[Rfam]
RNA sequence: UGUUACUUGUCGGGGUGCCGUGAACAACGGCUGAGAUGAUACCCGUGAACCUGAUCCAGUUCGUACUGGCGUAGGAAACAAGCAAGUCUGGUGC
Numbered sequence: 001u002g003u004u005a006c007u008u009g010u011c012g013g014g015g016u017g018c019c020g021u022g023a024a025c026a027a028c029g030g031c032u033g034a035g036a037u038g039a040u041a042c043c044c045g046u047g048a049a050c051c052u053g054a055u056c057c058a059g060u061u062c063g064u065a066c067u068g069g070c071g072u073a074g075g076a077a078a079c080a081a082g083c084a085a086g087u088c089u090g091g092u093g094c
Stems, first nucleotide, its partner, number of pairs: 006082005011045004016039001017031005050075004056069004
Source information: Shown here is a 94-nucleotide RNA from Pokkaliibacter plantistimulans, a member of the family "TPP riboswitch aptamer (THI element)". It scores 74 bits against the family's covariance model. Taxonomically the source falls in Pokkaliibacter (Bacteria, Pseudomonadati, Pseudomonadota, Oceanospirillales). Rfam's curators write: Vitamin B(1) in its active form thiamin pyrophosphate (TPP) is an essential coenzyme that is synthesised by coupling of pyrimidine and thiazole moieties in bacteria.